A member of the RNA family "Plastid-psbl-rps4 3UTR RNA" from Papaver somniferum, 53 nucleotides long. Rfam classes the family as a cis-regulatory element. For this family Rfam cites "Protein-mediated protection as the predominant mechanism for defining processed mRNA termini in land plant chloroplasts" (Zhelyazkova et al., Nucleic Acids Res, 2012). A search with the family's covariance model found it, with a score of 69 bits.

RNA sequence: CGAAAAUAGAGGGAUUUGAACCCUCGGUACAAAUAAAUCGUACAACGAAUUAG
Number, nucleotide and partner (000 for none) at each position: 001c000002g000003a000004a000005a000006a000007u000008a000009g025010a024011g023012g022013g021014a000015u000016u000017u000018g000019a000020a000021c013022c012023c011024u010025c009026g000027g043028u042029a041030c040031a000032a038033a000034u000035a000036a000037a000038u032039c000040g030041u029042a028043c027044a000045a000046c000047g000048a000049a000050u000051u000052a000053g000